Rfam assigns this 59-nucleotide RNA from Steroidobacter agaridevorans to the family "terC RNA". The family has 129 seed sequences and 1,112 matches in Rfam 15.1. Lineage of the source: Bacteria > Pseudomonadota > Gammaproteobacteria > Steroidobacteraceae > Steroidobacter. The base pairs follow the family's consensus structure, which is taken from published work. The match comes from Rfam's covariance-model search (52 bits).

RNA sequence: GGAGCGGACCGGGCCCCUCUGACGACGGAAGUUGACCGUCGUGAUGUCGGACGCACACA
Numbered sequence: 001g002g003a004g005c006g007g008a009c010c011g012g013g014c015c016c017c018u019c020u021g022a023c024g025a026c027g028g029a030a031g032u033u034g035a036c037c038g039u040c041g042u043g044a045u046g047u048c049g050g051a052c053g054c055a056c057a058c059a
Stems, first nucleotide, its partner, number of pairs: 007052001009050004022042007
Dot-bracket structure: ......(.((((.........(((((((.......)))))))....)))).).......